[Rfam]
RNA sequence: AGAGGUUGCAAGUUUGAAGCCAUAGCAGAAGUGCUCACAAUGUGGCCAUGUCAGAUUCCAACAAAUCUGAAUUCUGCU
Numbered sequence: 001a002g003a004g005g006u007u008g009c010a011a012g013u014u015u016g017a018a019g020c021c022a023u024a025g026c027a028g029a030a031g032u033g034c035u036c037a038c039a040a041u042g043u044g045g046c047c048a049u050g051u052c053a054g055a056u057u058c059c060a061a062c063a064a065a066u067c068u069g070a071a072u073u074c075u076g077c078u
Stems, first nucleotide, its partner, number of pairs: 015048002019046003024078007031043003052069006
RNA: Mammalian CPEB3 ribozyme
Organism: Alligator mississippiensis